[Rfam]
RNA sequence: UGCCACAAUGAUGACAUCAUAUUUGCUACUCUUGACAGCUGGGGUGACGAUAGCUUUAAACCACCAUGAUUAUAACUGAGGCA
Numbered sequence: 001u002g003c004c005a006c007a008a009u010g011a012u013g014a015c016a017u018c019a020u021a022u023u024u025g026c027u028a029c030u031c032u033u034g035a036c037a038g039c040u041g042g043g044g045u046g047a048c049g050a051u052a053g054c055u056u057u058a059a060a061c062c063a064c065c066a067u068g069a070u071u072a073u074a075a076c077u078g079a080g081g082c083a
Stems, first nucleotide, its partner, number of pairs: 001083004
Rfam assigns this 83-nucleotide RNA sequence to the family "Small nucleolar RNA SNORD24". Pairs were carried over by alignment from the consensus structure, which was predicted with PFOLD. A reference for the family is Qu et al. (1995), "U24, a novel intron-encoded small nucleolar RNA with two 12 nt long, phylogenetically conserved complementarities to 28S rRNA", Nucleic Acids Res. Rfam 15.1 lists 2,843 matches to the family in 1,188 species.